[Rfam]
RNA sequence: AGAUGAGAGAUACACCCUGCCCGCAGGUGACUGCGGGCGCCCAGGCCGGGGCCUCCCCAGCUCCGACCUGGUCGUGCUUCGCGCACACAACCGGGGCCCAGCGCUUCGGAUCUCCUCACCGAUCGGA
Dot-bracket structure: ...((((.((........((((((((....))))))))..(((((.((((((.......)))))).)))))..((((.....))))....(((((((.....)))))))...))))))((....)).